RNA sequence: CGAGCGGGACGGUGAUGAUUAUCACCUUCAACCUCCCUGUUGGACUACGGCCGAGCUUAUAGCUCGGCCUUUUUU
Numbered sequence: 001c002g003a004g005c006g007g008g009a010c011g012g013u014g015a016u017g018a019u020u021a022u023c024a025c026c027u028u029c030a031a032c033c034u035c036c037c038u039g040u041u042g043g044a045c046u047a048c049g050g051c052c053g054a055g056c057u058u059a060u061a062g063c064u065c066g067g068c069c070u071u072u073u074u075u
Stems, first nucleotide, its partner, number of pairs: 008029002011026004049069008
A member of the RNA family "Singlet oxygen resistance RNA X" from Litorivita pollutaquae, 75 nucleotides long. About the family: SorX (RSs2461)like SorY is a singlet oxygen induced sRNA that counteracts oxidative stress by targeting mRNA for a transporter in Rhodobacter. It also has an impact on resistance against organic hydroperoxides. It targets SD sequence of potA mRNA via an aSD sequence. The aSD sequence and some neighbouring nucleotides are identical to the one of SorY (targets takP mRNA). The literature on the family includes a 2009 paper in Mol Microbiol by Berghoff et al., "Photooxidative stress-induced and abundant small RNAs in Rhodobacter sphaeroides". The organism belongs to Litorivita, within Bacteria. Rfam classes the family as a small RNA.